[Rfam]
RNA sequence: CCGGCUCCGGUUCACGCCCCAGCAUCCGUUGCGGACGACCCGGCGCC
Numbered sequence: 001c002c003g004g005c006u007c008c009g010g011u012u013c014a015c016g017c018c019c020c021a022g023c024a025u026c027c028g029u030u031g032c033g034g035a036c037g038a039c040c041c042g043g044c045g046c047c
Stems, first nucleotide, its partner, number of pairs: 003047003007043004015037002017034002020031003
Shown here is a 47-nucleotide RNA, a member of the family "L31-Actinobacteria ribosomal protein leader". Rfam classes the family as a cis-regulatory leader. The base pairs follow the family's consensus structure, which is taken from published work. The literature on the family includes a 2020 paper in BMC Microbiol by Eckert and Weinberg, "Discovery of 20 novel ribosomal leader candidates in bacteria and archaea". Rfam's curators put it in the seed alignment.